[Rfam]
RNA sequence: CUCCCCGAAAUAGUUUUAGGACUAGCCUUGUAUAAUAGUAAACGGAGGUAGGGCGCUGGAUGGACUAGGGGCCUCACCAGGUUACCAAACCCAACCAAUCUUCGAAUUCCGUUUACCGUAUUACAGGAGUCAGACUGCGGGUGAUAAGGUCCGUAGUCGAGAGGGAAAGAGCCCAGACCACCAGCUAAGGUCCCUAAGAUAGACUAAGUGGGAAAGGUUGUAGGAAUACACAGACAAUCAGGAGGUUGGCUUAGAAGCAGCAAUCCUUUAAAGAAAGCGUAAUAGCUCACUGAUCAAGUGUACCUGCGCCGAAAAUUUAACGGGGCUAAGUUUAUCACCGAAGCUGUGGAUUGGAGAUAACUUCGGUUAUCUCUUCUGGUAGGGGAGCGUUCCAUACUGGGCUGAAGCUCGAUCGUAAGAACGGGUGGACUGUAUGGAAGUGAGUAU
Numbered sequence: 001c002u003c004c005c006c007g008a009a010a011u012a013g014u015u016u017u018a019g020g021a022c023u024a025g026c027c028u029u030g031u032a033u034a035a036u037a038g039u040a041a042a043c044g045g046a047g048g049u050a051g052g053g054c055g056c057u058g059g060a061u062g063g064a065c066u067a068g069g070g071g072c073c074u075c076a077c078c079a080g081g082u083u084a085c086c087a088a089a090c091c092c093a094a095c096c097a098a099u100c101u102u103c104g105a106a107u108u109c110c111g112u113u114u115a116c117c118g119u120a121u122u123a124c125a126g127g128a129g130u131c132a133g134a135c136u137g138c139g140g141g142u143g144a145u146a147a148g149g150u151c152c153g154u155a156g157u158c159g160a161g162a163g164g165g166a167a168a169g170a171g172c173c174c175a176g177a178c179c180a181c182c183a184g185c186u187a188a189g190g191u192c193c194c195u196a197a198g199a200u201a202g203a204c205u206a207a208g209u210g211g212g213a214a215a216g217g218u219u220g221u222a223g224g225a226a227u228a229c230a231c232a233g234a235c236a237a238u239c240a241g242g243a244g245g246u247u248g249g250c251u252u253a254g255a256a257g258c259a260g261c262a263a264u265c266c267u268u269u270a271a272a273g274a275a276a277g278c279g280u281a282a283u284a285g286c287u288c289a290c291u292g293a294u295c296a297a298g299u300g301u302a303c304c305u306g307c308g309c310c311g312a313a314a315a316u317u318u319a320a321c322g323g324g325g326c327u328a329a330g331u332u333u334a335u336c337a338c339c340g341a342a343g344c345u346g347u348g349g350a351u352u353g354g355a356g357a358u359a360a361c362u363u364c365g366g367u368u369a370u371c372u373c374u375u376c377u378g379g380u381a382g383g384g385g386a387g388c389g390u391u392c393c394a395u396a397c398u399g400g401g402c403u404g405a406a407g408c409u410c411g412a413u414c415g416u417a418a419g420a421a422c423g424g425g426u427g428g429a430c431u432g433u434a435u436g437g438a439a440g441u442g443a444g445u446a447u
Stems, first nucleotide, its partner, number of pairs: 001387006011024005026129001027127006036120001038116009051103001052101002057097003061093003068086002070083005133158010163174003178349004183345003189339003198336007216310003220307005226301004237294005243267003249261002268272001273288001277286002350377001353374008388442001390439007398432003407426005413420002